[Rfam]
RNA sequence: GGAGGGGUGGCCGAGUGGUCGAAGGCGGGCGACUCGAAAUCGUCUAGGCGGUGCUGAGCCGUCUCGUGGGUUCAAAUCCCACCCUCUCCG
Numbered sequence: 001g002g003a004g005g006g007g008u009g010g011c012c013g014a015g016u017g018g019u020c021g022a023a024g025g026c027g028g029g030c031g032a033c034u035c036g037a038a039a040u041c042g043u044c045u046a047g048g049c050g051g052u053g054c055u056g057a058g059c060c061g062u063c064u065c066g067u068g069g070g071u072u073c074a075a076a077u078c079c080c081a082c083c084c085u086c087u088c089c090g
Stems, first nucleotide, its partner, number of pairs: 001089007010026003028044005066082005
A member of the RNA family "tRNA" from Aminomonas paucivorans, 90 nucleotides long. The source organism's lineage runs through Bacteria, Thermotogati, Synergistota, Aminomonas and Aminomonas paucivorans. Pairs were carried over by alignment from the consensus structure, which is taken from published work.